[Rfam]
RNA sequence: GGGGGGAGCGCCGGAUCUUGGGCUGUGUCCCCCAGUGCCCUGGUCUCCAGGGCCUGCAGCACUGUAAUUGCACUCCCGGGGCUGCGCAGCCCCCG
Dot-bracket structure: .(((((...(((((..((.(((.(((((...(...(((...(..((....)).).))).....).)..)))).))).))..))).))..))))).

Rfam assigns this 95-nucleotide RNA from Vulpes vulpes to the family "mir-8799 microRNA precursor family".